[Rfam]
RNA: Pyrrolysine insertion sequence mttB
RNA sequence: GCGGCUCCAAGGUGCCGGACGCGCAGGCGGCUUACGAAAGCGCCAACACCCUGCUGCCGACGGUGCUUGCGGGCGUCAACUUCGCGCUGCACUCAG
Numbered sequence: 001g002c003g004g005c006u007c008c009a010a011g012g013u014g015c016c017g018g019a020c021g022c023g024c025a026g027g028c029g030g031c032u033u034a035c036g037a038a039a040g041c042g043c044c045a046a047c048a049c050c051c052u053g054c055u056g057c058c059g060a061c062g063g064u065g066c067u068u069g070c071g072g073g074c075g076u077c078a079a080c081u082u083c084g085c086g087c088u089g090c091a092c093u094c095a096g
Base pairs, nucleotide, nucleotide: 021028029058030057031056073094075092076091